A member of the RNA family "dinG RNA", 81 nucleotides long. The base pairs follow the family's consensus structure, which is taken from published work. The sequence is in the family's curated seed alignment.
RNA sequence: AAUGAAACUUCCGUGUCAGCGGCUUGCUUGAAUGCGAGAUAUGGUCGUUUCGGGCUGGAAUUUAUGUCCGUUACGCCAUAU
Numbered sequence: 001a002a003u004g005a006a007a008c009u010u011c012c013g014u015g016u017c018a019g020c021g022g023c024u025u026g027c028u029u030g031a032a033u034g035c036g037a038g039a040u041a042u043g044g045u046c047g048u049u050u051c052g053g054g055c056u057g058g059a060a061u062u063u064a065u066g067u068c069c070g071u072u073a074c075g076c077c078a079u080a081u
Stems, first nucleotide, its partner, number of pairs: 011022004023038005039081006047074002051070005
The family's RNA type in Rfam is small RNA.